[Rfam]
RNA sequence: CAUAAAAUUACGCUUAAUUUCCGGGAGAAAAUACCGGAAAGCGGGGGAACCAGUCUUUUGGGGCGAAUCAUGCAGCUUUUGCAUGUAGGGAUGCCAUCUGCCCGAGUCCGUCAGCUAACCUCGUCAGCAUGGAGAUGGGUCAU
Number, nucleotide and partner (000 for none) at each position: 001c000002a000003u000004a000005a000006a000007a000008u000009u000010a000011c000012g128013c127014u126015u000016a000017a000018u040019u039020u038021c037022c036023g035024g034025g000026a000027g000028a000029a000030a000031a000032u000033a000034c024035c023036g022037g021038a020039a019040a018041g124042c123043g122044g121045g120046g119047g000048a000049a000050c000051c060052a059053g000054u000055c000056u000057u000058u000059u052060g051061g109062g108063g107064c000065g000066a000067a000068u000069c085070a084071u083072g082073c000074a000075g000076c000077u000078u000079u000080u000081g000082c072083a071084u070085g069086u000087a000088g103089g102090g101091a000092u000093g000094c000095c000096a000097u000098c000099u000100g000101c090102c089103c088104g000105a000106g000107u063108c062109c061110g000111u000112c000113a000114g000115c000116u000117a000118a000119c046120c045121u044122c043123g042124u041125c000126a014127g013128c012129a000130u000131g000132g000133a000134g000135a000136u000137g000138g000139g000140u000141c000142a000143u000